[Rfam]
Shown here is a 97-nucleotide RNA from Actinidia chinensis, a member of the family "Small nucleolar RNA Z103". NCBI's taxonomy places the organism under Eukaryota, Tracheophyta, Euphyllophyta, Actinidiaceae, Actinidia chinensis. Pairs were carried over by alignment from the consensus structure, which was predicted with PFOLD. The match comes from Rfam's covariance-model search (81 bits). It is annotated as a C/D-box small nucleolar RNA.
RNA sequence: UUGGAUGUGAUGAUUAUUUCCCCAGAUGAUCGACAAUGAAAUUACCGAGCGCUGUUCUCAUUUGAUGAGAAAUCCAAGCCAGGAUAAUCUGAUCCAU
Numbered sequence: 001u002u003g004g005a006u007g008u009g010a011u012g013a014u015u016a017u018u019u020c021c022c023c024a025g026a027u028g029a030u031c032g033a034c035a036a037u038g039a040a041a042u043u044a045c046c047g048a049g050c051g052c053u054g055u056u057c058u059c060a061u062u063u064g065a066u067g068a069g070a071a072a073u074c075c076a077a078g079c080c081a082g083g084a085u086a087a088u089c090u091g092a093u094c095c096a097u
Stems, first nucleotide, its partner, number of pairs: 002096004